[Rfam]
Shown here is a 101-nucleotide sequence from Terfezia boudieri, a member of the family "Small nucleolar RNA Z13/snr52". A search with the family's covariance model found it, with a score of 79 bits. By type it is a C/D-box small nucleolar RNA.

RNA sequence: CUGAAUUGGAUGAUGAAAAAACUUUCGGAUGUAAAAACUAUUUCACCUGAGAGCGCAAAACCCAUGCGGAUACUUUCCGUUGCCUUCCUUCUGACUCUUCU
Number, nucleotide and partner (000 for none) at each position: 001c000002u000003g100004a099005a098006u000007u000008g000009g000010a000011u000012g000013a000014u000015g000016a000017a000018a000019a000020a000021a000022c000023u000024u000025u000026c079027g078028g077029a076030u000031g000032u000033a000034a000035a000036a000037a000038c000039u000040a000041u000042u000043u000044c000045a000046c000047c000048u000049g000050a000051g000052a000053g000054c000055g000056c000057a000058a000059a000060a000061c000062c000063c000064a000065u000066g000067c000068g000069g000070a000071u000072a000073c000074u000075u000076u029077c028078c027079g026080u000081u000082g000083c000084c000085u000086u000087c000088c000089u000090u000091c000092u000093g000094a000095c000096u000097c000098u005099u004100c003101u000